This 74-nucleotide sequence from Bombyx mori belongs to the Rfam family "mir-965 microRNA precursor family".
[Rfam]
RNA sequence: UAGCUAAACGGGAGAAGCUAUAGCGCUAUAUGUCAAUAUUAAAAUCAUAAGCGUAUAGCUUUUCCCCUUGGUUA
Numbered sequence: 001u002a003g004c005u006a007a008a009c010g011g012g013a014g015a016a017g018c019u020a021u022a023g024c025g026c027u028a029u030a031u032g033u034c035a036a037u038a039u040u041a042a043a044a045u046c047a048u049a050a051g052c053g054u055a056u057a058g059c060u061u062u063u064c065c066c067c068u069u070g071g072u073u074a
Base pairs, nucleotide, nucleotide: 003072004071005070006069007068010066011065012064014062015061018058019057020056021055022054026051027050029049030048031047032046

Rfam's curators put it in the seed alignment. For this family Rfam cites "The regulation of silkworm fibroin L chain production by miRNA-965 and miRNA-1926 in insect cells" (Huang et al., Bioorg Khim, 2012).